The family of this 247-nucleotide RNA from Trifolium subterraneum is "MIR2655 microRNA precursor family". It scores 133 bits against the family's covariance model. The base pairs follow the family's consensus structure, which was predicted with RNAalifold.
[Rfam]
RNA sequence: CUCUUAAUAAUUAAAUGUUCCUUCUGGGUCCCUUAAAUAUAUCUUUGUUAGCUAUAUUGGUCCAUUCCGUUAAUUUUUUGCAAAAAACCUUAACUUUAGGACCAAUAUAAAACUUAUUAAAUUAGAUAAACGACCAAUAUGAAAAUAGAUAAGCGAUCAAUAUGAAACUAAAGUUAACAUAAGGGAUCAAUGUGGCAAACGAAGAUAUCUUUAAGGGACCAAAGAGAAACAUUUAAUUAUUAAGGGA
Numbered sequence: 001c002u003c004u005u006a007a008u009a010a011u012u013a014a015a016u017g018u019u020c021c022u023u024c025u026g027g028g029u030c031c032c033u034u035a036a037a038u039a040u041a042u043c044u045u046u047g048u049u050a051g052c053u054a055u056a057u058u059g060g061u062c063c064a065u066u067c068c069g070u071u072a073a074u075u076u077u078u079u080g081c082a083a084a085a086a087a088c089c090u091u092a093a094c095u096u097u098a099g100g101a102c103c104a105a106u107a108u109a110a111a112a113c114u115u116a117u118u119a120a121a122u123u124a125g126a127u128a129a130a131c132g133a134c135c136a137a138u139a140u141g142a143a144a145a146u147a148g149a150u151a152a153g154c155g156a157u158c159a160a161u162a163u164g165a166a167a168c169u170a171a172a173g174u175u176a177a178c179a180u181a182a183g184g185g186a187u188c189a190a191u192g193u194g195g196c197a198a199a200c201g202a203a204g205a206u207a208u209c210u211u212u213a214a215g216g217g218a219c220c221a222a223a224g225a226g227a228a229a230c231a232u233u234u235a236a237u238u239a240u241u242a243a244g245g246g247a
Base pairs, nucleotide, nucleotide: 002245003244004243005242006241007240008239023224025222027220028219029218031216032215033214034213035212036211037210039208040207041206042205043204045202046201047200